[Rfam]
Rfam assigns this 127-nucleotide sequence from Castor canadensis to the family "U11 spliceosomal RNA". The family has 72 seed sequences and 2,595 matches in Rfam 15.1. Clan: U1 clan.
RNA sequence: AAAAGAAGCUUCUGUAGGCACAUGUAGGGCAACUUGAUUGCUGUGCAUGAGGAAUCAACCUUAAGAAAUUUCAGAAGAGUAAUUUUUUGGUACAUGGACAGCUGGUAAUCAUUGCUCUUGAGGCCCU
Numbered sequence: 001a002a003a004a005g006a007a008g009c010u011u012c013u014g015u016a017g018g019c020a021c022a023u024g025u026a027g028g029g030c031a032a033c034u035u036g037a038u039u040g041c042u043g044u045g046c047a048u049g050a051g052g053a054a055u056c057a058a059c060c061u062u063a064a065g066a067a068a069u070u071u072c073a074g075a076a077g078a079g080u081a082a083u084u085u086u087u088u089g090g091u092a093c094a095u096g097g098a099c100a101g102c103u104g105g106u107a108a109u110c111a112u113u114g115c116u117c118u119u120g121a122g123g124c125c126c127u
Base pairs, nucleotide, nucleotide: 009077010076011075012074013020014019021049022048023047024046025045026044028042029041030040031039032038051072052071053070054069055068096125097124099122102120104118105117108116110114
It is annotated as a spliceosomal small nuclear RNA. The organism belongs to Castor, within Eukaryota. A search with the family's covariance model found it, with a score of 51 bits.